[Rfam]
RNA sequence: ACAUAAGGAGCAAUAAACCCUCUUUUGAUAGAACAAGUAAAGGGUUUAUUGCUCCUUUAUUUUCU
Numbered sequence: 001a002c003a004u005a006a007g008g009a010g011c012a013a014u015a016a017a018c019c020c021u022c023u024u025u026u027g028a029u030a031g032a033a034c035a036a037g038u039a040a041a042g043g044g045u046u047u048a049u050u051g052c053u054c055c056u057u058u059a060u061u062u063u064c065u
Stems, first nucleotide, its partner, number of pairs: 005057016023041001024037004

A member of the RNA family "Plastid-psbA-2 3UTR RNA", 65 nucleotides long. The literature on the family includes a 2023 paper in Plant Commun by Richter et al., "Retrograde signaling in plants: A critical review focusing on the GUN pathway and beyond". The base pairs follow the family's consensus structure, which was predicted with LocARNA. It is one of the family's seed sequences. Plastid psbA-2 is a non-coding RNA (ncRNA) present in plastids. It was identified in inverted repeat sequences in the 3 prime untranslate region (3UTR) of photosystem II quinone-binding protein (psbA).